[Rfam]
Transposase-2 RNA: a 69-nucleotide RNA.
The family has 151 seed sequences and 214 matches in Rfam 15.1.
By type it is a small RNA.
RNA sequence: GAAGUGUGAACCAAGCGGCGGCGGAAGCCGUGUGAGACUUGGAGCGGAUGGCCGCAAGGCUGUCCCACA
Numbered sequence: 001g002a003a004g005u006g007u008g009a010a011c012c013a014a015g016c017g018g019c020g021g022c023g024g025a026a027g028c029c030g031u032g033u034g035a036g037a038c039u040u041g042g043a044g045c046g047g048a049u050g051g052c053c054g055c056a057a058g059g060c061u062g063u064c065c066c067a068c069a
Base pairs, nucleotide, nucleotide: 011042012041013040014039015038018031019030020029021028022027046065047064048063049062050061051060052059053058